Description:
A member of the RNA family "ctRNA" from Allobosea spartocytisi, 45 nucleotides long.
RNA sequence: AGAGGCUUCCGGGACGGUGACGUUUCGGGGGCCUUUUUCUUUUGC
Numbered sequence: 001a002g003a004g005g006c007u008u009c010c011g012g013g014a015c016g017g018u019g020a021c022g023u024u025u026c027g028g029g030g031g032c033c034u035u036u037u038u039c040u041u042u043u044g045c
Base pairs, nucleotide, nucleotide: 003034004033005032006031007030008029009028010027013024014023015022016021
Notes:
About the family: This family represents a group of ctRNAs (or counter-transcribed RNAs) from p42d and related plasmids. ctRNAs are small, highly structured, antisense sequences which are involved in negative regulation. Members of this family are known to bind to the mRNA of repC causing translational repression. By type it is an antisense RNA. It scores 59 bits against the family's covariance model.